[Rfam]
RNA sequence: ACGGAAGCCCGGUGAGGCCUAGGUCGAUCCGGAAGAGAAGGUUCGUUCUCCCGAUCCGGGCACCUAGCACGGUUCUCGGCACCCACGCUGAGUCACAGCCGCGAUAAUGGCAGAAGUGUUGCGGGCCUGCGUAAUUGCGAAAAGUGAAAGGUAUCGACGGCCCUUUGGGUGGGGUUGCAACCGGAAGCGUCGCAAGAUCGCCGAGGCCAUCCCACGCAGCCCAUAGGAUGUACGCCUGGUAACCGAGUUCCGUGUUAGCGGGCGGCGGACCGAAUAAAUCGGAUCGCCGCCCGCUUUCACAU
Number, nucleotide and partner (000 for none) at each position: 001a000002c000003g064004g063005a000006a000007g061008c060009c059010c058011g057012g056013u000014g000015a000016g052017g051018c000019c000020u000021a049022g048023g000024u000025c045026g044027a043028u000029c041030c040031g000032g000033a000034a000035g000036a000037g000038a000039a000040g030041g029042u000043u027044c026045g025046u000047u000048c022049u021050c000051c017052c016053g000054a000055u000056c012057c011058g010059g009060g008061c007062a000063c004064c003065u257066a256067g255068c254069a253070c252071g251072g250073u000074u000075c000076u246077c245078g244079g243080c000081a000082c000083c239084c238085a237086c000087g235088c234089u000090g000091a000092g231093u230094c000095a000096c000097a000098g111099c110100c109101g000102c000103g000104a000105u000106a000107a000108u000109g100110g099111c098112a000113g000114a000115a000116g000117u000118g220119u219120u218121g217122c216123g215124g208125g207126c206127c205128u204129g201130c200131g199132u000133a000134a000135u195136u194137g193138c192139g191140a190141a000142a000143a000144g188145u187146g000147a000148a000149a000150g182151g181152u180153a000154u000155c000156g000157a000158c177159g176160g175161c174162c173163c172164u171165u000166u000167g000168g000169g000170u000171g164172g163173g162174g161175u160176u159177g158178c000179a000180a152181c151182c150183g000184g000185a000186a000187g145188c144189g000190u140191c139192g138193c137194a136195a135196g000197a000198u000199c131200g130201c129202c000203g000204a128205g127206g126207c125208c124209a000210u000211c000212c000213c000214a000215c123216g122217c121218a120219g119220c118221c000222c000223a000224u000225a000226g000227g000228a000229u000230g093231u092232a000233c000234g088235c087236c000237u085238g084239g083240u000241a000242a000243c079244c078245g077246a076247g000248u000249u000250c072251c071252g070253u069254g068255u067256u066257a065258g294259c293260g292261g291262g290263c289264g288265g287266c286267g285268g284269a000270c282271c281272g280273a000274a000275u000276a000277a000278a000279u000280c272281g271282g270283a000284u268285c267286g266287c265288c264289g263290c262291c261292c260293g259294c258295u000296u000297u000298c000299a000300c000301a000302u000